[Rfam]
RNA sequence: UCGACAGAUUAUUGUAUUCGACUGUAUUCACGGCAUAAAAUUACACUGUUUUUAAACGGAAAGUGAAUGAAUUAACAUAAUAGACUCCU
Numbered sequence: 001u002c003g004a005c006a007g008a009u010u011a012u013u014g015u016a017u018u019c020g021a022c023u024g025u026a027u028u029c030a031c032g033g034c035a036u037a038a039a040a041u042u043a044c045a046c047u048g049u050u051u052u053u054a055a056a057c058g059g060a061a062a063g064u065g066a067a068u069g070a071a072u073u074a075a076c077a078u079a080a081u082a083g084a085c086u087c088c089u
Base pairs, nucleotide, nucleotide: 003087004086009083010082011081012080013079014078015077017075018074020073021072023070026068027067028066029065030064031063034058036056037051038050039049
A member of the RNA family "MIR6152 microRNA precursor family" from Nicotiana attenuata, 89 nucleotides long.
Lineage of the source: Eukaryota > Magnoliopsida > Mesangiospermae > Solanaceae > Nicotiana.
The match comes from Rfam's covariance-model search (72 bits).